[Rfam]
RNA: mir-9223 microRNA precursor family
RNA sequence: GGCGGUUCUCAGGUGACACACCCGGGAUCGGGCUCCCUCCUCUCUGUUUUUGGGGUGUGUUACCUGAGAACCACC
Numbered sequence: 001g002g003c004g005g006u007u008c009u010c011a012g013g014u015g016a017c018a019c020a021c022c023c024g025g026g027a028u029c030g031g032g033c034u035c036c037c038u039c040c041u042c043u044c045u046g047u048u049u050u051u052g053g054g055g056u057g058u059g060u061u062a063c064c065u066g067a068g069a070a071c072c073a074c075c
Base pairs, nucleotide, nucleotide: 002074005071006070007069008068009067010066011065012064013063014062015061016060017059019057020056021055022054023053024051025050026049027048029046030045031044032043